[Rfam]
RNA sequence: AUCCGAGUGCUAGGGCGAUGAAUGAGCUCGUCAGUGAAGAUUCGUCUGAGACAGCUAUUGCUGGUUGAAAACUACCAACCUUGACUGCUUUUGAUGGUCUUCGGAUCGUCAAGGAAUUUUUGAAACAUACCGAC
Numbered sequence: 001a002u003c004c005g006a007g008u009g010c011u012a013g014g015g016c017g018a019u020g021a022a023u024g025a026g027c028u029c030g031u032c033a034g035u036g037a038a039g040a041u042u043c044g045u046c047u048g049a050g051a052c053a054g055c056u057a058u059u060g061c062u063g064g065u066u067g068a069a070a071a072c073u074a075c076c077a078a079c080c081u082u083g084a085c086u087g088c089u090u091u092u093g094a095u096g097g098u099c100u101u102c103g104g105a106u107c108g109u110c111a112a113g114g115a116a117u118u119u120u121u122g123a124a125a126c127a128u129a130c131c132g133a134c
Base pairs, nucleotide, nucleotide: 026055027054028053030052031051032050038047039046040045089114090113091112092111093110094109095108096107097106098105099104

A member of the RNA family "U4 spliceosomal RNA" from Massarina eburnea, 134 nucleotides long.
For this family Rfam cites "Structures of the human pre-catalytic spliceosome and its precursor spliceosome" (Zhan et al., Cell Res, 2018).
From the family's description: U4 small nuclear RNA (U4 snRNA) is a component of the major U2-dependent spliceosome.
The organism belongs to Massarina eburnea, within Eukaryota.